[Rfam]
RNA sequence: GUACAUCCAAUAGGAAUUGAACCUACGAAUUCGCCAGUUAUGAGUUGAGUGCUUUAAUUGUUCAAUCAUACAUGU
Dot-bracket structure: ..((((....((((.......))))..............(((.((((((((.......)))))))))))..))))

Notes: Shown here is a 75-nucleotide sequence from Hibiscus syriacus, a member of the family "Plastid-ycf2 5UTR RNA". Plastid ycf2 is a non-coding RNA (ncRNA) recognised in plastids. It was found in the prime untranslated region (5UTR) of ycf2 genes, it presents a tRNA-like motif which suggests it can be involved in mRNA maturation, particularly involved in defining the precise 5' end of the transcript.